[Rfam]
RNA sequence: UGGAUGAGUCGUGACUGGCGAACAGGUGGGAAACCACCGGGGAGCGAUGAACAGGCACCAUAGCCGCCCGCCUGGGCUAAGGCG
Numbered sequence: 001u002g003g004a005u006g007a008g009u010c011g012u013g014a015c016u017g018g019c020g021a022a023c024a025g026g027u028g029g030g031a032a033a034c035c036a037c038c039g040g041g042g043a044g045c046g047a048u049g050a051a052c053a054g055g056c057a058c059c060a061u062a063g064c065c066g067c068c069c070g071c072c073u074g075g076g077c078u079a080a081g082g083c084g
Stems, first nucleotide, its partner, number of pairs: 005051001008048005015041002017072004026037004061079005
Shown here is an 84-nucleotide sequence from Schaalia turicensis, a member of the family "ZMP/ZTP riboswitch aptamer (pfl RNA motif)". A search with the family's covariance model found it, with a score of 58 bits.